[Rfam]
RNA sequence: AUGCACUGUUUGGCCUCAACUUCGAACGUCCCCCUCGCCUUUUACUAGGGAGACCCGGGGGUCAGGCAGCCAAUGCAUGCUUGCAAUCUUUCGUAACCAGCCAUGCCUGGGA
Numbered sequence: 001a002u003g004c005a006c007u008g009u010u011u012g013g014c015c016u017c018a019a020c021u022u023c024g025a026a027c028g029u030c031c032c033c034c035u036c037g038c039c040u041u042u043u044a045c046u047a048g049g050g051a052g053a054c055c056c057g058g059g060g061g062u063c064a065g066g067c068a069g070c071c072a073a074u075g076c077a078u079g080c081u082u083g084c085a086a087u088c089u090u091u092c093g094u095a096a097c098c099a100g101c102c103a104u105g106c107c108u109g110g111g112a
Stems, first nucleotide, its partner, number of pairs: 001078004007068011028054003032050004094112001097110004
RNA: U5 spliceosomal RNA
Organism: Puccinia sorghi